The family of this 251-nucleotide RNA sequence from Desulfonema limicola is "Group II catalytic intron D1-D4-6". Rfam 15.1 lists 1,617 matches to the family in 661 species. Pairs were carried over by alignment from the consensus structure.

RNA sequence: UAAGUCCCGCCUGAUUAAAGUUUAGCCAGCAGGUCAGCAGCGAAGUCCGAGGGUAAACCCGGUAACGGGAGUCCGAAGCCGGACAGAGUGAGGAUACAGGCCGUGUGAUUGAGCCCCGAAAAGGGUAUAGUCGUGGACAUUGGAUAAGCUCUUAAAGCAAGAGCAAAAGCCGACGCUGUUGAGUGAGCGGAAGGCAGCAGACCUUGCAGCGAUAUGGCGGGCAGCAGGGUUUCCAACGGGGUCUGAGAGCA
Numbered sequence: 001u002a003a004g005u006c007c008c009g010c011c012u013g014a015u016u017a018a019a020g021u022u023u024a025g026c027c028a029g030c031a032g033g034u035c036a037g038c039a040g041c042g043a044a045g046u047c048c049g050a051g052g053g054u055a056a057a058c059c060c061g062g063u064a065a066c067g068g069g070a071g072u073c074c075g076a077a078g079c080c081g082g083a084c085a086g087a088g089u090g091a092g093g094a095u096a097c098a099g100g101c102c103g104u105g106u107g108a109u110u111g112a113g114c115c116c117c118g119a120a121a122a123g124g125g126u127a128u129a130g131u132c133g134u135g136g137a138c139a140u141u142g143g144a145u146a147a148g149c150u151c152u153u154a155a156a157g158c159a160a161g162a163g164c165a166a167a168a169g170c171c172g173a174c175g176c177u178g179u180u181g182a183g184u185g186a187g188c189g190g191a192a193g194g195c196a197g198c199a200g201a202c203c204u205u206g207c208a209g210c211g212a213u214a215u216g217g218c219g220g221g222c223a224g225c226a227g228g229g230u231u232u233c234c235a236a237c238g239g240g241g242u243c244u245g246a247g248a249g250c251a
Stems, first nucleotide, its partner, number of pairs: 012036005020030003023220001025218002038088001041086001045084005052074002058069004110245001111243001113242006134235004169195003174189004200231008209222002